This 131-nucleotide RNA from Coregonus sp. 'balchen' belongs to the Rfam family "Small nucleolar RNA SNORA15". Its family is annotated with nucleolus and RNA processing in the Gene Ontology. A reference for the family is Huttenhofer et al. (2001), "RNomics: an experimental approach that identifies 201 candidates for novel, small, non-messenger RNAs in mouse", EMBO J. It is annotated as an H/ACA-box small nucleolar RNA. ACA15 is a member of the H/ACA class of snoRNA that guide the sites of modification of uridines to pseudouridines.
[Rfam]
RNA sequence: GCAUGGGCGAAUUCUGUGUUACUCGUCCAGUAGUAAAUAUAGUCAGACACCAUGCAAACGCAUCCUUUCAUUCCUCCUUUCCUAAGUAGAGUGCUGUCCUGUACAUACUCAACGGAGAAAUGAAUACAAUG
Dot-bracket structure: ((((((.......((((((.................)))))).......))))))...........(((.(((.((.........((.(((((............))))).)))).)))..))).......